[Rfam]
RNA: mir-250 microRNA precursor family
Organism: Caenorhabditis angaria
RNA sequence: UUGGCCCGACCUCCAGUUGUCUCGUGAUCCGCCGAUAAAUGGAACGAAUCACAGUCAACUGUUGGCCUGGUCUU
Numbered sequence: 001u002u003g004g005c006c007c008g009a010c011c012u013c014c015a016g017u018u019g020u021c022u023c024g025u026g027a028u029c030c031g032c033c034g035a036u037a038a039a040u041g042g043a044a045c046g047a048a049u050c051a052c053a054g055u056c057a058a059c060u061g062u063u064g065g066c067c068u069g070g071u072c073u074u
Base pairs, nucleotide, nucleotide: 003073004072006070007069008068010065011064014061015060016059017058018057019056021054022053024052025051026050027049028048030046031045032042033041034040